[Rfam]
RNA: 6S / SsrS RNA
RNA sequence: UUUCCCCUGGGGUGCUCGCGAUGGUUCCGAUUUUUUGAACCGAUAAGCAUCCAAGCCUGGUGAUUGGCCCGAAGGAGACUGUUGUGCGCUGGAUUUAUCUCCGGUACCUGAAGUUUCCGGCAAAUUGCCCUCUUUAUUGAGUAGGGUUCAGGAUGACGGCCAGACGGCAUCACCGGGGGAACC
Numbered sequence: 001u002u003u004c005c006c007c008u009g010g011g012g013u014g015c016u017c018g019c020g021a022u023g024g025u026u027c028c029g030a031u032u033u034u035u036u037g038a039a040c041c042g043a044u045a046a047g048c049a050u051c052c053a054a055g056c057c058u059g060g061u062g063a064u065u066g067g068c069c070c071g072a073a074g075g076a077g078a079c080u081g082u083u084g085u086g087c088g089c090u091g092g093a094u095u096u097a098u099c100u101c102c103g104g105u106a107c108c109u110g111a112a113g114u115u116u117c118c119g120g121c122a123a124a125u126u127g128c129c130c131u132c133u134u135u136a137u138u139g140a141g142u143a144g145g146g147u148u149c150a151g152g153a154u155g156a157c158g159g160c161c162a163g164a165c166g167g168c169a170u171c172a173c174c175g176g177g178g179g180a181a182c183c
Stems, first nucleotide, its partner, number of pairs: 002181009012170004017166002033153009059129002062126004067121001069120001074118006084107002089104005